[Rfam]
RNA sequence: GCAAAAUAGUCGGGGAGCCUAGUAGGCUGAGAUUGCAUUUUUUAAAGACCCGUUGAACCUGAUUCAGUUAACACUGGCGUAGGGAACUAUCUGUCUUGUUUG
Numbered sequence: 001g002c003a004a005a006a007u008a009g010u011c012g013g014g015g016a017g018c019c020u021a022g023u024a025g026g027c028u029g030a031g032a033u034u035g036c037a038u039u040u041u042u043u044a045a046a047g048a049c050c051c052g053u054u055g056a057a058c059c060u061g062a063u064u065c066a067g068u069u070a071a072c073a074c075u076g077g078c079g080u081a082g083g084g085a086a087c088u089a090u091c092u093g094u095c096u097u098g099u100u101u102g
Stems, first nucleotide, its partner, number of pairs: 006090005011052004017027004034045001037042001058083004064077004